[Rfam]
Nucleotides: 436
Base pairs, nucleotide, nucleotide: 024055025053026052027051028050029049035042036041065072066071076103077102078101079100080099086094087093106333107332108331109330113154114153115152116151119148120145121144122143123142124140125139126138127137128136158274159273160271161270162269163268167265168264187258188257189256191254192253193252197214199213200212202211203210223227230240231239283304284303285302286301287300288299289298310327311326312325313324314323367374368373390401391400392399393398
Number, partner (000 for none) and nucleotide at each position: 001000c002000a003000a004000c005000c006000u007000c008000a009000a010000c011000u012000c013000a014000u015000a016000u017000g018000g019000g020000a021000c022000u023000a024055c025053c026052c027051c028050c029049u030000g031000a032000a033000u034000u035042u036041a037000a038000g039000c040000a041036u042035a043000u044000u045000a046000a047000u048000u049029a050028g051027g052026g053025g054000a055024g056000g057000a058000a059000a060000a061000g062000a063000a064000a065072c066071u067000a068000a069000c070000a071066a072065g073000g074000a075000u076103u077102u078101u079100c080099u081000u082000a083000g084000u085000a086094g087093c088000g089000g090000c091000g092000a093087g094086c095000g096000a097000a098000a099080a100079g101078a102077a103076a104000a105000c106333a107332g108331u109330u110000c111000a112000g113154c114153a115152c116151u117000a118000a119148g120145u121144c122143a123142c124140u125139u126138u127137g128136u129000c130000u131000a132000u133000a134000u135000g136128g137127c138126a139125a140124a141000u142123g143122u144121g145120a146000g147000a148119u149000g150000c151116a152115g153114u154113g155000u156000a157000u158274g159273g160271a161270g162269c163268g164000u165000c166000a167265a168264u169000a170000u171000u172000c173000u174000a175000g176000u177000a178000u179000g180000a181000g182000a183000a184000a185000u186000u187258a188257a189256u190000g191254a192253u193252u194000u195000a196000a197214g198000u199213c200212c201000u202211u203210c204000u205000u206000a207000a208000a209000u210203g211202a212200g213199g214197c215000c216000a217000u218000u219000u220000a221000c222000c223227c224000a225000u226000a227223g228000a229000g230240g231239g232000u233000g234000c235000c236000a237000g238000g239231c240230c241000c242000g243000u244000a245000u246000a247000a248000c249000g250000u251000u252193a253192a254191u255000g256189a257188u258187u259000g260000c261000u262000a263000g264168a265167u266000g267000a268163u269162g270161u271160u272000u273159c274158c275000a276000a277000a278000g279000a280000g281000u282000c283304g284303u285302g286301u287300u288299g289298c290000u291000u292000g293000a294000u295000a296000g297000u298289g299288c300287a301286g302285c303284a304283c305000u306000a307000a308000g309000u310327g311326g312325g313324u314323g315000g316000u317000a318000a319000a320000c321000u322000c323314c324313a325312u326311c327310u328000a329000a330109a331108a332107c333106u334000a335000a336000a337000u338000a339000u340000a341000a342000c343000c344000a345000u346000g347000a348000g349000a350000c351000c352000g353000a354000u355000a356000g357000u358000a359000a360000a361000c362000a363000a364000g365000u366000a367374c368373c369000g370000u371000g372000a373368g374367g375000g376000a377000a378000a379000g380000u381000u382000g383000a384000a385000a386000a387000g388000a389000a390401c391400u392399c393398u394000g395000a396000a397000u398393a399392g400391a401390g402000a403000g404000u405000u406000a407000a408000a409000c410000a411000g412000u413000a414000c415000g416000u417000g418000a419000a420000a421000c422000u423000g424000c425000u426000u427000a428000g429000a430000g431000g432000u433000u434000a435000a436000g